Rfam assigns this 212-nucleotide sequence from Schizosaccharomyces pombe to the family "small nucleolar RNA snR98".
On this family, see Li et al., J Biol Chem 2005: "Identification and functional analysis of 20 Box H/ACA small nucleolar RNAs (snoRNAs) from Schizosaccharomyces pombe".
Gene Ontology terms of the family: nucleolus and RNA processing.
NCBI's taxonomy places the organism under Eukaryota, Dikarya, Taphrinomycotina, Schizosaccharomycetes, Schizosaccharomyces.
The base pairs follow the family's consensus structure, which was predicted with RNAalifold.

RNA sequence: AUGCCACAUACAUAGCACGAUUGGAGGCUUUGGAAUUUGAGUCUCGGUGAAUCAAAGUUCUUUGGUCUUGUGAAUCCACGUGCAACUAAAAGGAGUGCUAACAGUGACUUUUGGUACGCUGUGUAUAUGCAGAAAAAGAUAUUAGACACCAAUUAAGCCGGGACGAAAGCCUAAUUGGAUUGCUUUCGUCUGACUAUGCGUGUUUUACAUUC
Numbered sequence: 001a002u003g004c005c006a007c008a009u010a011c012a013u014a015g016c017a018c019g020a021u022u023g024g025a026g027g028c029u030u031u032g033g034a035a036u037u038u039g040a041g042u043c044u045c046g047g048u049g050a051a052u053c054a055a056a057g058u059u060c061u062u063u064g065g066u067c068u069u070g071u072g073a074a075u076c077c078a079c080g081u082g083c084a085a086c087u088a089a090a091a092g093g094a095g096u097g098c099u100a101a102c103a104g105u106g107a108c109u110u111u112u113g114g115u116a117c118g119c120u121g122u123g124u125a126u127a128u129g130c131a132g133a134a135a136a137a138g139a140u141a142u143u144a145g146a147c148a149c150c151a152a153u154u155a156a157g158c159c160g161g162g163a164c165g166a167a168a169g170c171c172u173a174a175u176u177g178g179a180u181u182g183c184u185u186u187c188g189u190c191u192g193a194c195u196a197u198g199c200g201u202g203u204u205u206u207a208c209a210u211u212c
Stems, first nucleotide, its partner, number of pairs: 002131003008126009020115002024111004028106001030104003036056005042050002058094006064087003144205006150198002156195002159192003163189008
Dot-bracket structure: .(((...(((((((((...((..(((((.(((...(((((.((.....)).))))).(((((((((..................))).)))))).......))).).))))..))..)))))))))..)))............((((((((....((.(((.((((((((...........))))))))))).)).)).)))))).......